RNA sequence: CACCGCAAUGCACCGAAAGCUGACAAGGCAUCAGGGGGCAGGGACGGGGGAACCAAUCCCGGUCCGCACCAGCGUCGCGCCCCACGGGCGACGUGGACCUUGGGGUGAAGCCACUCAGGUGGCCGGGCAGCCUUCCCGCCCGAACCCGACAGCUAACCUCGCAGGCGUGCCGGAGGGAAAAC
Number, nucleotide and partner (000 for none) at each position: 001c000002a000003c043004c042005g000006c000007a000008a000009u000010g000011c000012a000013c000014c000015g000016a000017a000018a000019g000020c000021u000022g000023a000024c000025a000026a000027g000028g000029c000030a000031u000032c000033a000034g000035g000036g000037g000038g000039c000040a000041g000042g004043g003044a000045c161046g160047g159048g158049g157050g000051a000052a000053c000054c102055a101056a000057u000058c000059c000060c000061g000062g000063u000064c000065c000066g000067c000068a000069c000070c000071a000072g000073c000074g000075u000076c000077g000078c000079g000080c000081c000082c000083c000084a000085c000086g000087g000088g000089c000090g000091a000092c000093g000094u000095g000096g000097a000098c000099c000100u000101u055102g054103g147104g146105g145106u000107g000108a000109a000110g000111c122112c121113a120114c119115u000116c000117a000118g000119g114120u113121g112122g111123c000124c000125g141126g140127g139128c138129a000130g000131c000132c000133u000134u000135c000136c000137c000138g128139c127140c126141c125142g000143a000144a000145c105146c104147c103148g000149a000150c000151a000152g000153c000154u000155a000156a000157c049158c048159u047160c046161g045162c000163a000164g000165g000166c000167g000168u000169g000170c000171c000172g000173g000174a000175g000176g000177g000178a000179a000180a000181a000182c000
RNA: c-di-AMP riboswitch aptamer (ydaO/yuaA leader)